[Rfam]
Nucleotides: 068
Base pairs, nucleotide, nucleotide: 011056012055013054015053016052017051018050019049023044024043025042026041027040028039029038030037031036
Number, partner (000 for none) and nucleotide at each position: 001000g002000a003000c004000g005000a006000a007000u008000c009000u010000a011056u012055u013054g014000a015053c016052c017051g018050c019049c020000g021000a022000g023044c024043u025042g026041c027040g028039c029038a030037c031036u032000u033000a034000c035000c036031g037030g038029u039028g040027c041026g042025c043024g044023g045000g046000g047000a048000g049019g050018g051017c052016g053015g054013c055012g056011a057000a058000a059000a060000g061000a062000g063000g064000a065000c066000u067000c068000u
ilvH RNA: a 68-nucleotide sequence from Comamonas serinivorans. The source organism's lineage runs through Bacteria, Pseudomonadati, Betaproteobacteria, Burkholderiales and Comamonas. Pairs were carried over by alignment from the consensus structure, which is taken from published work.